[Rfam]
RNA: tRNA
Organism: Symbiodinium pilosum
RNA sequence: AGGCGCGUAGCUCAGUUGGUUAGAGCACUUGGUCGACAUCCAAGGGGUCGUCAGUUCGAAUCUGACCGUGCCUA
Number, nucleotide and partner (000 for none) at each position: 001a073002g072003g071004c070005g069006c068007g067008u000009a000010g026011c025012u024013c023014a000015g000016u000017u000018g000019g000020u000021u000022a000023g013024a012025g011026c010027a000028c044029u043030u042031g041032g040033u000034c000035g000036a000037c000038a000039u000040c032041c031042a030043a029044g028045g000046g000047g000048u000049c000050g066051u065052c064053a063054g062055u000056u000057c000058g000059a000060a000061u000062c054063u053064g052065a051066c050067c007068g006069u005070g004071c003072c002073u001074a000